[Rfam]
RNA sequence: UUAAAGAUACUUCUCUGCGGAGCGGGCGGACAACCCGGCAGAGGUUAGAUUCCUAUGG
Numbered sequence: 001u002u003a004a005a006g007a008u009a010c011u012u013c014u015c016u017g018c019g020g021a022g023c024g025g026g027c028g029g030a031c032a033a034c035c036c037g038g039c040a041g042a043g044g045u046u047a048g049a050u051u052c053c054u055a056u057g058g
Stems, first nucleotide, its partner, number of pairs: 012055001013022003023041001025039001027037003042054003
The record is a 58-nucleotide sequence, which matches "pemK RNA" in Rfam. It is one of the family's seed sequences.